[Rfam]
RNA sequence: GUCUGUCGGUCAUCUACUCCUCCUCCCGGAUGUCCGACGCCGAAUGCGGCAUACCUCCUCCCAUGCCGCAUUUGAGAUCAAAGCCCGCUGCCUCCUCCUCCCGGCAGCGGGCUUUUUCA
Numbered sequence: 001g002u003c004u005g006u007c008g009g010u011c012a013u014c015u016a017c018u019c020c021u022c023c024u025c026c027c028g029g030a031u032g033u034c035c036g037a038c039g040c041c042g043a044a045u046g047c048g049g050c051a052u053a054c055c056u057c058c059u060c061c062c063a064u065g066c067c068g069c070a071u072u073u074g075a076g077a078u079c080a081a082a083g084c085c086c087g088c089u090g091c092c093u094c095c096u097c098c099u100c101c102c103g104g105c106a107g108c109g110g111g112c113u114u115u116u117u118c119a
Stems, first nucleotide, its partner, number of pairs: 007036003011032005041074010081114011